Background
A member of the RNA family "mir-191 microRNA precursor family" from Falcunculus frontatus, 87 nucleotides long. The literature on the family includes a 2004 paper in Proc Natl Acad Sci U S A by Kim et al., "Identification of many microRNAs that copurify with polyribosomes in mammalian neurons". Lineage of the source: Eukaryota > Vertebrata > Euteleostomi > Sarcopterygii > Falcunculus. The base pairs follow the family's consensus structure, which was predicted with RNAalifold.
RNA sequence: GGCGCCAGCGCGGGCAACGGAAUCCCAAAAGCAGCUGUCCCCACCGUGCCCAGCUGCCCUGGGGUUUCGUUACCCGCACUCGCGCUC
Numbered sequence: 001g002g003c004g005c006c007a008g009c010g011c012g013g014g015c016a017a018c019g020g021a022a023u024c025c026c027a028a029a030a031g032c033a034g035c036u037g038u039c040c041c042c043a044c045c046g047u048g049c050c051c052a053g054c055u056g057c058c059c060u061g062g063g064g065u066u067u068c069g070u071u072a073c074c075c076g077c078a079c080u081c082g083c084g085c086u087c
Stems, first nucleotide, its partner, number of pairs: 010077004017070009028060001031057007